This 83-nucleotide RNA sequence from Ottowia beijingensis belongs to the Rfam family "Burkholderia RNA 7 (anti-hemB)".
A reference for the family is Weinberg et al. (2007), "Identification of 22 candidate structured RNAs in bacteria using the CMfinder comparative genomics pipeline", Nucleic Acids Res.
Gene Ontology terms of the family: protein binding and bacterial biofilm matrix.
Rfam's curators write: This RNA motif was identified by computational search in b-proteobacteria Burkholderia.
By type it is a small RNA.
Taxonomically the source falls in Ottowia (Bacteria, Pseudomonadati, Burkholderiales, Comamonadaceae).
RNA sequence: UCCCCGCUUUCCUCCUGAGCGGGAGCCUUGAUGUGUGACAGCAGACAGGCUUUUCGACCCCGGCCCCGGCCGGGGUUUUUCUU
Numbered sequence: 001u002c003c004c005c006g007c008u009u010u011c012c013u014c015c016u017g018a019g020c021g022g023g024a025g026c027c028u029u030g031a032u033g034u035g036u037g038a039c040a041g042c043a044g045a046c047a048g049g050c051u052u053u054u055c056g057a058c059c060c061c062g063g064c065c066c067c068g069g070c071c072g073g074g075g076u077u078u079u080u081c082u083u
Stems, first nucleotide, its partner, number of pairs: 003023006025050004032043003058075007